Small Cajal body specific RNA 3: a 135-nucleotide sequence from Circaetus pectoralis. Rfam classes the family as a small Cajal body RNA. A reference for the family is Darzacq et al. (2002), "Cajal body-specific small nuclear RNAs: a novel class of 2'-O-methylation and pseudouridylation guide RNAs", EMBO J. Its family is annotated with Cajal body, RNA processing and nucleolus in the Gene Ontology.

[Rfam]
RNA sequence: GCUGGGACCAGUUGGGACCAGUCGUGGGCAAAAAAAACAGGUUUUGUCCACCGUUGCAGUCUUCCUAGAGCAAAGUGGAGGUCUCUGUCUGCUUUAGGAGAGCCAACUAAACCAGAUCGUUCCCCUCCAUACAUG
Numbered sequence: 001g002c003u004g005g006g007a008c009c010a011g012u013u014g015g016g017a018c019c020a021g022u023c024g025u026g027g028g029c030a031a032a033a034a035a036a037a038c039a040g041g042u043u044u045u046g047u048c049c050a051c052c053g054u055u056g057c058a059g060u061c062u063u064c065c066u067a068g069a070g071c072a073a074a075g076u077g078g079a080g081g082u083c084u085c086u087g088u089c090u091g092c093u094u095u096a097g098g099a100g101a102g103c104c105a106a107c108u109a110a111a112c113c114a115g116a117u118c119g120u121u122c123c124c125c126u127c128c129a130u131a132c133a134u135g
Stems, first nucleotide, its partner, number of pairs: 004065003009059001011057002024051006033045003077128005085119001087117003091113001093111005